[Rfam]
RNA sequence: CAGCAUGUUUCCAAGGGCUUUGGCUGCUGGUGGCCACGGGUUCUCCAAGAGCAAAUGGAGGGACUGUGACAGCCCAGGUCACACCAUACCUGCAGCUGCCACUCGCAUUUCCUAUAAAC
Numbered sequence: 001c002a003g004c005a006u007g008u009u010u011c012c013a014a015g016g017g018c019u020u021u022g023g024c025u026g027c028u029g030g031u032g033g034c035c036a037c038g039g040g041u042u043c044u045c046c047a048a049g050a051g052c053a054a055a056u057g058g059a060g061g062g063a064c065u066g067u068g069a070c071a072g073c074c075c076a077g078g079u080c081a082c083a084c085c086a087u088a089c090c091u092g093c094a095g096c097u098g099c100c101a102c103u104c105g106c107a108u109u110u111c112c113u114a115u116a117a118a119c
Base pairs, nucleotide, nucleotide: 011039012038016035017034018033019032021030057112058111059110060109061108072099073098075092076091077090078089
Small nucleolar RNA SNORA44: a 119-nucleotide RNA from Tupaia belangeri. About the family: ACA44 is a member of the H/ACA class of snoRNA that guide the sites of modification of uridines to pseudouridines. Clan: SNORA44 clan. A search with the family's covariance model found it, with a score of 103 bits. On this family, see Huttenhofer et al., EMBO J 2001: "RNomics: an experimental approach that identifies 201 candidates for novel, small, non-messenger RNAs in mouse". Its family is annotated with RNA processing and nucleolus in the Gene Ontology.